[Rfam]
RNA sequence: ACUUUAAGACGAAACUGGUUUUCACAGUGAUUUGCAGAUGGUUUUAAUUCUGAGAUCAUUGUGAAAGCUGUUUUCGUUAA
Numbered sequence: 001a002c003u004u005u006a007a008g009a010c011g012a013a014a015c016u017g018g019u020u021u022u023c024a025c026a027g028u029g030a031u032u033u034g035c036a037g038a039u040g041g042u043u044u045u046a047a048u049u050c051u052g053a054g055a056u057c058a059u060u061g062u063g064a065a066a067g068c069u070g071u072u073u074u075c076g077u078u079a080a
Stems, first nucleotide, its partner, number of pairs: 009077006016070010028058006